The record is a 102-nucleotide RNA from Alkalithermobacter paradoxus, which matches "Purine riboswitch aptamer" in Rfam.
[Rfam]
RNA sequence: AUAUGUCAAACGACAAACCUCCAUAUAAUUCGCGUAAUAAGGAUGCGAAGUUUCUACUAGGCGACCGUAAAUUGCCUUACUAUGGACUAAAUAUUUAUUAGU
Numbered sequence: 001a002u003a004u005g006u007c008a009a010a011c012g013a014c015a016a017a018c019c020u021c022c023a024u025a026u027a028a029u030u031c032g033c034g035u036a037a038u039a040a041g042g043a044u045g046c047g048a049a050g051u052u053u054c055u056a057c058u059a060g061g062c063g064a065c066c067g068u069a070a071a072u073u074g075c076c077u078u079a080c081u082a083u084g085g086a087c088u089a090a091a092u093a094u095u096u097a098u099u100a101g102u
Stems, first nucleotide, its partner, number of pairs: 020086006029049007059077006
Dot-bracket structure: ...................((((((...(((((((.......))))))).........((((((.......))))))...))))))................

The match comes from Rfam's covariance-model search (79 bits).